Shown here is a 93-nucleotide RNA sequence from Lacisediminihabitans changchengi, a member of the family "Glycine riboswitch aptamer". The match comes from Rfam's covariance-model search (59 bits). NCBI's taxonomy places the organism under Bacteria, Bacillati, Actinomycetes, Microbacteriaceae, Lacisediminihabitans.
RNA sequence: CGAACCGCUGCGGGAGAGUUCUUCCACCCGUGAAGACGCCGUAGGAGCAAUCCCCUCCGGGAAUCUCUCAGGCCCAAGUACCGCGCGGUGAGG
Numbered sequence: 001c002g003a004a005c006c007g008c009u010g011c012g013g014g015a016g017a018g019u020u021c022u023u024c025c026a027c028c029c030g031u032g033a034a035g036a037c038g039c040c041g042u043a044g045g046a047g048c049a050a051u052c053c054c055c056u057c058c059g060g061g062a063a064u065c066u067c068u069c070a071g072g073c074c075c076a077a078g079u080a081c082c083g084c085g086c087g088g089u090g091a092g093g
Stems, first nucleotide, its partner, number of pairs: 006088001009085005020036004038073003041069001045067003051060002